The family of this 614-nucleotide RNA from Cnephaeus nilssonii is "c-sis internal ribosome entry site (IRES)".

RNA sequence: CGGAGCAGCCGCCGCUUGCAGCCCGUGGAGGACGCCCAGAGUGGCGAGCAGACUGACCAACAGACUCGCCCCACGUCCACCUGUCUGCUGCGUCCGGCCCAGAGCUCAGCGGGCGGAGCAGCCGAGCCCGCCGCCCAGGGCCCCAAGCCAGGGCGCACACGCUCCGGCCCCCCCCUCCACUCCCACCCCCCAGUCUGCCCAGGAGAGAGUUUGCACCUCUCGCUGCCUGGGUUCUCCGGCCGCCGCUGCAGAGCCAACUUUGGAAAAAGUUUUCGGGGGGGUGACUUUGGCUUUGAGGUGCCCAGCUCCAGCUUUCCGACUUCGGGGCCCUUCCCAGAAAAUGUUGCAAAAAAGCUAAGCCGGCGGGCAAAGGAAGACGCCUCUAGCCGGCAGCGAGCGCAGAGAGAAGACGAGCCUUCGGCUGCCGCGUUCUUUUUCCUCUUGGAGGUUGGAGUCCCCUCGGCGCCCCCACACGGCUAGACACCUCGGCUGGUUCGCGACGCAGCCCCCCGGCUGUGGAUGCUCGCUCGGGCUCGGGAUCCGCCCAGGUAGUGGCCUCGGACCCUGGUCUCGCGCCCAGGCCCUCCUCAGCCCCCCAACAACGGAGCCGGGGC
Numbered sequence: 001c002g003g004a005g006c007a008g009c010c011g012c013c014g015c016u017u018g019c020a021g022c023c024c025g026u027g028g029a030g031g032a033c034g035c036c037c038a039g040a041g042u043g044g045c046g047a048g049c050a051g052a053c054u055g056a057c058c059a060a061c062a063g064a065c066u067c068g069c070c071c072c073a074c075g076u077c078c079a080c081c082u083g084u085c086u087g088c089u090g091c092g093u094c095c096g097g098c099c100c101a102g103a104g105c106u107c108a109g110c111g112g113g114c115g116g117a118g119c120a121g122c123c124g125a126g127c128c129c130g131c132c133g134c135c136c137a138g139g140g141c142c143c144c145a146a147g148c149c150a151g152g153g154c155g156c157a158c159a160c161g162c163u164c165c166g167g168c169c170c171c172c173c174c175c176u177c178c179a180c181u182c183c184c185a186c187c188c189c190c191c192a193g194u195c196u197g198c199c200c201a202g203g204a205g206a207g208a209g210u211u212u213g214c215a216c217c218u219c220u221c222g223c224u225g226c227c228u229g230g231g232u233u234c235u236c237c238g239g240c241c242g243c244c245g246c247u248g249c250a251g252a253g254c255c256a257a258c259u260u261u262g263g264a265a266a267a268a269g270u271u272u273u274c275g276g277g278g279g280g281g282u283g284a285c286u287u288u289g290g291c292u293u294u295g296a297g298g299u300g301c302c303c304a305g306c307u308c309c310a311g312c313u314u315u316c317c318g319a320c321u322u323c324g325g326g327g328c329c330c331u332u333c334c335c336a337g338a339a340a341a342u343g344u345u346g347c348a349a350a351a352a353a354g355c356u357a358a359g360c361c362g363g364c365g366g367g368c369a370a371a372g373g374a375a376g377a378c379g380c381c382u383c384u385a386g387c388c389g390g391c392a393g394c395g396a397g398c399g400c401a402g403a404g405a406g407a408a409g410a411c412g413a414g415c416c417u418u419c420g421g422c423u424g425c426c427g428c429g430u431u432c433u434u435u436u437u438c439c440u441c442u443u444g445g446a447g448g449u450u451g452g453a454g455u456c457c458c459c460u461c462g463g464c465g466c467c468c469c470c471a472c473a474c475g476g477c478u479a480g481a482c483a484c485c486u487c488g489g490c491u492g493g494u495u496c497g498c499g500a501c502g503c504a505g506c507c508c509c510c511c512g513g514c515u516g517u518g519g520a521u522g523c524u525c526g527c528u529c530g531g532g533c534u535c536g537g538g539a540u541c542c543g544c545c546c547a548g549g550u551a552g553u554g555g556c557c558u559c560g561g562a563c564c565c566u567g568g569u570c571u572c573g574c575g576c577c578c579a580g581g582c583c584c585u586c587c588u589c590a591g592c593c594c595c596c597c598a599a600c601a602a603c604g605g606a607g608c609c610g611g612g613g614c
Stems, first nucleotide, its partner, number of pairs: 002255002005249005011243002014240003018236001020235002027220005033155005039149001041148001042140001043099003046095001048093002053090001055088001057087001060084004067075002104136001107133001109131006115123001158213002161210004168203002172197001257270005278589004283584001285581003289577003297528004305523002307520004311515001316513003324510004329505001346355002359391006367384001369382001372378001404503001406501001409498001411497006418489004422480002424477004429472002431453003435448005454464003530571004536565003540562004547558004594613004600607001
The literature on the family includes a 1999 paper in Mol Cell Biol by Sella et al., "Differentiation-induced internal translation of c-sis mRNA: analysis of the cis elements and their differentiation-linked binding to the hnRNP C protein". This family represents the c-sis 5'-UTR which contains three modules that can individually mediate internal ribosome entry. However, the full length sequence is required for maximal IRES activity. It is thought that the three IRES elements are somehow responsive to cellular changes and act to regulate the level of translation. The family's consensus secondary structure was predicted with ILM.